[Rfam]
RNA sequence: AAAAUAAUAAAAGCGCCAGAACUUAGUAAAUAAAUUAAAACAUUUACUAAGUUGACGAGGUUGGGGAAUAUCGAGAUUUUCGGCGGAUGCCCCACAGUACUUGUAUGCUACUGUUAAAAAUUGGCAAAACUAGAAAGUGAUUUCUAGAACAAAUUCAAUUGGGUAUACAAC
Numbered sequence: 001a002a003a004a005u006a007a008u009a010a011a012a013g014c015g016c017c018a019g020a021a022c023u024u025a026g027u028a029a030a031u032a033a034a035u036u037a038a039a040a041c042a043u044u045u046a047c048u049a050a051g052u053u054g055a056c057g058a059g060g061u062u063g064g065g066g067a068a069u070a071u072c073g074a075g076a077u078u079u080u081c082g083g084c085g086g087a088u089g090c091c092c093c094a095c096a097g098u099a100c101u102u103g104u105a106u107g108c109u110a111c112u113g114u115u116a117a118a119a120a121u122u123g124g125c126a127a128a129a130c131u132a133g134a135a136a137g138u139g140a141u142u143u144c145u146a147g148a149a150c151a152a153a154u155u156c157a158a159u160u161g162g163g164u165a166u167a168c169a170a171c
Stems, first nucleotide, its partner, number of pairs: 020053008029044003062094005071083004095113005119160005130147007
The family of this 171-nucleotide RNA from Clostridium sp. CAG:265 is "glmS glucosamine-6-phosphate activated ribozyme aptamer". It scores 117 bits against the family's covariance model. About the family: This entry contains a glucosamine-6-phosphate activated ribozyme that is found in the mRNA for GlmS. GlmS is an enzyme that uses fructose-6-phosphate and glutamine to generate glucosamine-6-phosphate. The ribozyme catalyses self cleavage of the glmS mRNA that is thought to regulate GlmS activity. It is annotated as a riboswitch. Lineage of the source: Bacteria > Clostridia > Eubacteriales > Clostridiaceae > Clostridium.